Rfam assigns this 77-nucleotide RNA from Sulfuricella denitrificans to the family "c-di-GMP-I-GGC riboswitch aptamer".

RNA sequence: CAGGAUUAAGCCACACCCGUCGCGAGGCGGGGUCGGAAAGCCACGGGUCUUAGAACAAGACAGCCGGGCCGCCAUCG
Numbered sequence: 001c002a003g004g005a006u007u008a009a010g011c012c013a014c015a016c017c018c019g020u021c022g023c024g025a026g027g028c029g030g031g032g033u034c035g036g037a038a039a040g041c042c043a044c045g046g047g048u049c050u051u052a053g054a055a056c057a058a059g060a061c062a063g064c065c066g067g068g069c070c071g072c073c074a075u076c077g
Stems, first nucleotide, its partner, number of pairs: 001077001004073001011036002016031006034063001040069003044066003047061003
Lineage of the source: Bacteria > Pseudomonadati > Betaproteobacteria > Nitrosomonadales > Sulfuricella denitrificans.